About this RNA: Shown here is a 198-nucleotide RNA from Vigna angularis, a member of the family "MIR159 microRNA precursor family".
RNA sequence: GAAAGAGUGAAGGAGUUCCUUCAGUACUGGCAAAGGUAUGGAGGGUUGCUGAAGUAUCUGCUGAGUCAUUCCUACACACAGAGUAAGGGUUACUCAUAAAAGGCGUUUGCUACUGUACUUGUGUGAAUGAAUGAAGCAGGAGAUAUUUUGCAUCCUGUCUCUUUUGCUUGGACUGAAGGAGCCCCUUCAUUUCUUUCC
Numbered sequence: 001g002a003a004a005g006a007g008u009g010a011a012g013g014a015g016u017u018c019c020u021u022c023a024g025u026a027c028u029g030g031c032a033a034a035g036g037u038a039u040g041g042a043g044g045g046u047u048g049c050u051g052a053a054g055u056a057u058c059u060g061c062u063g064a065g066u067c068a069u070u071c072c073u074a075c076a077c078a079c080a081g082a083g084u085a086a087g088g089g090u091u092a093c094u095c096a097u098a099a100a101a102g103g104c105g106u107u108u109g110c111u112a113c114u115g116u117a118c119u120u121g122u123g124u125g126a127a128u129g130a131a132u133g134a135a136g137c138a139g140g141a142g143a144u145a146u147u148u149u150g151c152a153u154c155c156u157g158u159c160u161c162u163u164u165u166g167c168u169u170g171g172a173c174u175g176a177a178g179g180a181g182c183c184c185c186u187u188c189a190u191u192u193c194u195u196u197c198c
Base pairs, nucleotide, nucleotide: 013184015182016181017180018179019178022175023174024173025172027170035162058142059141061139062138063137067133068132069131070130075125076124077123078122

Rfam links the family to the GO terms miRNA-mediated post-transcriptional gene silencing and RISC complex.